[Rfam]
Notes
Shown here is a 65-nucleotide RNA from Mannheimia granulomatis, a member of the family "L31-Gammaproteobacteria ribosomal protein leader". The family's consensus secondary structure is taken from published work. By type it is a cis-regulatory leader. The source organism's lineage runs through Bacteria, Pseudomonadati, Pseudomonadota, Gammaproteobacteria and Mannheimia. Its Rfam clan is "Ribosomal Protein L31 Leader clan".
RNA sequence: CAUAUGGUACCUAUCAGCGGUAGAGAGUCUAACAAGAUAGGUGGCGAUAUGGCUUCUUAUGAGGU
Numbered sequence: 001c002a003u004a005u006g007g008u009a010c011c012u013a014u015c016a017g018c019g020g021u022a023g024a025g026a027g028u029c030u031a032a033c034a035a036g037a038u039a040g041g042u043g044g045c046g047a048u049a050u051g052g053c054u055u056c057u058u059a060u061g062a063g064g065u
Stems, first nucleotide, its partner, number of pairs: 001051005007045002011040005

Rfam's curators put it in the seed alignment.